Rfam assigns this 104-nucleotide RNA from Mycobacterium sinensis to the family "mraW RNA". A search with the family's covariance model found it, with a score of 74 bits.

RNA sequence: GCGCGCCCGUGCCUCGUGGCCUCUGUCCGAACCGACCCUGACGUACUUCCCCAACGUCAGGUUCGCGCCGUCGGGCAGGGACCUCGAGGCGGGGGCGAUCCCCG
Numbered sequence: 001g002c003g004c005g006c007c008c009g010u011g012c013c014u015c016g017u018g019g020c021c022u023c024u025g026u027c028c029g030a031a032c033c034g035a036c037c038c039u040g041a042c043g044u045a046c047u048u049c050c051c052c053a054a055c056g057u058c059a060g061g062u063u064c065g066c067g068c069c070g071u072c073g074g075g076c077a078g079g080g081a082c083c084u085c086g087a088g089g090c091g092g093g094g095g096c097g098a099u100c101c102c103c104g
Base pairs, nucleotide, nucleotide: 010091011090012089013088014087015086016085018083019082021080022079023078024077025076026075027074028073029072030071032067033065034064035063037061038060039059040058041057042056043055044054